Shown here is a 79-nucleotide sequence from Enterobius vermicularis, a member of the family "mir-83 microRNA precursor family". A reference for the family is Warf et al. (2011), "Improved annotation of C. elegans microRNAs by deep sequencing reveals structures associated with processing by Drosha and Dicer", RNA. Its family is annotated with miRNA-mediated post-transcriptional gene silencing and RISC complex in the Gene Ontology. The family's consensus secondary structure was predicted with RNAalifold.
RNA sequence: GUUUUUCCACAACUGAAUUUGCUUGCGUGCUCGAACGUUCUCUUGUCUCUAGCACCAUUUAAAUUCAGGAUUGGUGAAA
Numbered sequence: 001g002u003u004u005u006u007c008c009a010c011a012a013c014u015g016a017a018u019u020u021g022c023u024u025g026c027g028u029g030c031u032c033g034a035a036c037g038u039u040c041u042c043u044u045g046u047c048u049c050u051a052g053c054a055c056c057a058u059u060u061a062a063a064u065u066c067a068g069g070a071u072u073g074g075u076g077a078a079a
Base pairs, nucleotide, nucleotide: 013068014067015066016065017064018063019062020061021060024057025056027055028054030052031051033049034048035046036045